[Rfam]
RNA sequence: UGGGUUAGAACUCGACUCAGUCCGGCCAGCGCAAUGCUGCCGGAAGAACCCCGCCACGCCGGCAGCGGGGGUCGCUGGCAGCCUGGCUGCCACCCGACCUCGCCAUGAGGUCAACAGGAACACCAGUCAAC
Numbered sequence: 001u002g003g004g005u006u007a008g009a010a011c012u013c014g015a016c017u018c019a020g021u022c023c024g025g026c027c028a029g030c031g032c033a034a035u036g037c038u039g040c041c042g043g044a045a046g047a048a049c050c051c052c053g054c055c056a057c058g059c060c061g062g063c064a065g066c067g068g069g070g071g072u073c074g075c076u077g078g079c080a081g082c083c084u085g086g087c088u089g090c091c092a093c094c095c096g097a098c099c100u101c102g103c104c105a106u107g108a109g110g111u112c113a114a115c116a117g118g119a120a121c122a123c124c125a126g127u128c129a130a131c
Stems, first nucleotide, its partner, number of pairs: 021044006028038003049070006077091006096112006
RNA: rmf RNA
Organism: Pseudomonas saudiphocaensis